[Rfam]
RNA sequence: GUCGGAGACGGCGAUGGAUCCCGCCAGGGUGUGAGAGCCUCACCCCCAAACUGCCACCUCGGCUGAUGGUUCCUGACUCGUC
Numbered sequence: 001g002u003c004g005g006a007g008a009c010g011g012c013g014a015u016g017g018a019u020c021c022c023g024c025c026a027g028g029g030u031g032u033g034a035g036a037g038c039c040u041c042a043c044c045c046c047c048a049a050a051c052u053g054c055c056a057c058c059u060c061g062g063c064u065g066a067u068g069g070u071u072c073c074u075g076a077c078u079c080g081u082c
Stems, first nucleotide, its partner, number of pairs: 010025004016073003020069002053063003
Notes:
The family of this 82-nucleotide RNA sequence from Humibacillus sp. DSM 29435 is "Fluoride riboswitch aptamer (crcB RNA motif)". Lineage of the source: Bacteria > Bacillati > Micrococcales > Intrasporangiaceae > Humibacillus. Rfam links the family to the GO terms positive regulation of gene expression and response to fluoride.